[Rfam]
Guanidine-I riboswitch aptamer: a 98-nucleotide RNA sequence from Halalkalibacter akibai. Rfam links the family to the GO term regulation of gene expression. It scores 84 bits against the family's covariance model.

RNA sequence: AAAAGAGCAUUCUAGGGUUCCGCAUAAAUCUUAUGGUCUGGUCCGAGAGAAGGCACAUAGAUGAUCUAUGGACACGGAGGGAGAAAAGCCCGGGAGGU
Numbered sequence: 001a002a003a004a005g006a007g008c009a010u011u012c013u014a015g016g017g018u019u020c021c022g023c024a025u026a027a028a029u030c031u032u033a034u035g036g037u038c039u040g041g042u043c044c045g046a047g048a049g050a051a052g053g054c055a056c057a058u059a060g061a062u063g064a065u066c067u068a069u070g071g072a073c074a075c076g077g078a079g080g081g082a083g084a085a086a087a088g089c090c091c092g093g094g095a096g097g098u
Base pairs, nucleotide, nucleotide: 007054008053010051011050012049015044016043020041021040022038023035024034025033026032027031056070057069058068059067060066061065073093075096079091080090081089